Notes:
The family of this 440-nucleotide part of an RNA from Spiroplasma taiwanense is "Bacterial large subunit ribosomal RNA". It scores 2921 bits against the family's covariance model.
RNA sequence: CUCCCCGAUAUAGCUUUAAGGCUAGCGUCGAGGUUAAGAAUUAUGGAGGUAGAGCUCUGAAUGUAUGAUGGCCCCACCUAGGGGUACUGAUUACAAUUAAACUACGAAUGCCAUAAUUUCAUACUCGGCAGUCAGAACAUGGGUGAUAAGGUCCAUGCUCGUGAGGGAAACAGCCCAGAUCAACAACUAAGGUCCCUAAAUUUACGCUAAGUGUGUAAGGAUGUGGAAGUGCACAGACAGCUAGGAUGUUGGCUUAGAAGCAGCCAUCAUUUAAAGAGUGCGUAACAGCUCACUAGUCGAGUGCUUCUGCGCCGAAAAUGUACCGGGGCUUAAGCGUAGUACCGAAGUUUUGGAUUUACAGCAAUGUAAGUGGUAGGGGAGCGUUCUAAUUGCAAUGAAGUCAGACUGUGAGGACUGGUGGAGCGAUUAGAAGAGAUUAU
Numbered sequence: 001c002u003c004c005c006c007g008a009u010a011u012a013g014c015u016u017u018a019a020g021g022c023u024a025g026c027g028u029c030g031a032g033g034u035u036a037a038g039a040a041u042u043a044u045g046g047a048g049g050u051a052g053a054g055c056u057c058u059g060a061a062u063g064u065a066u067g068a069u070g071g072c073c074c075c076a077c078c079u080a081g082g083g084g085u086a087c088u089g090a091u092u093a094c095a096a097u098u099a100a101a102c103u104a105c106g107a108a109u110g111c112c113a114u115a116a117u118u119u120c121a122u123a124c125u126c127g128g129c130a131g132u133c134a135g136a137a138c139a140u141g142g143g144u145g146a147u148a149a150g151g152u153c154c155a156u157g158c159u160c161g162u163g164a165g166g167g168a169a170a171c172a173g174c175c176c177a178g179a180u181c182a183a184c185a186a187c188u189a190a191g192g193u194c195c196c197u198a199a200a201u202u203u204a205c206g207c208u209a210a211g212u213g214u215g216u217a218a219g220g221a222u223g224u225g226g227a228a229g230u231g232c233a234c235a236g237a238c239a240g241c242u243a244g245g246a247u248g249u250u251g252g253c254u255u256a257g258a259a260g261c262a263g264c265c266a267u268c269a270u271u272u273a274a275a276g277a278g279u280g281c282g283u284a285a286c287a288g289c290u291c292a293c294u295a296g297u298c299g300a301g302u303g304c305u306u307c308u309g310c311g312c313c314g315a316a317a318a319u320g321u322a323c324c325g326g327g328g329c330u331u332a333a334g335c336g337u338a339g340u341a342c343c344g345a346a347g348u349u350u351u352g353g354a355u356u357u358a359c360a361g362c363a364a365u366g367u368a369a370g371u372g373g374u375a376g377g378g379g380a381g382c383g384u385u386c387u388a389a390u391u392g393c394a395a396u397g398a399a400g401u402c403a404g405a406c407u408g409u410g411a412g413g414a415c416u417g418g419u420g421g422a423g424c425g426a427u428u429a430g431a432a433g434a435g436a437u438u439a440u
Stems, first nucleotide, its partner, number of pairs: 001381006011024005026131001027129006037122001038119009052105001053103002058099003062095004070087001071085005135160002138157007165176003180353004185349003191343003200340001202339006219313002223310010240297005246270003251265003271275001276291001280289002354371007382435001384432010400419005406413002